[Rfam]
A member of the RNA family "small nucleolar RNA snoR114" from Lupinus albus, 83 nucleotides long.
A reference for the family is Chen and Wu (2009), "Mining small RNA sequencing data: a new approach to identify small nucleolar RNAs in Arabidopsis", Nucleic Acids Res.
Rfam 15.1 lists 1,645 matches to the family in 183 species.
It is annotated as a C/D-box small nucleolar RNA.
Its family is annotated with nucleolus and RNA processing in the Gene Ontology.
The family's consensus secondary structure was predicted with RNAalifold.

RNA sequence: GAGCUAUGAUGAUAUUUGUACCAAUUGUGAUGGCUGGGUUUAUCACUAACAUCUUCAAGAUGACAAAGAGUAUAUCUGAGCUC
Numbered sequence: 001g002a003g004c005u006a007u008g009a010u011g012a013u014a015u016u017u018g019u020a021c022c023a024a025u026u027g028u029g030a031u032g033g034c035u036g037g038g039u040u041u042a043u044c045a046c047u048a049a050c051a052u053c054u055u056c057a058a059g060a061u062g063a064c065a066a067a068g069a070g071u072a073u074a075u076c077u078g079a080g081c082u083c
Stems, first nucleotide, its partner, number of pairs: 001083004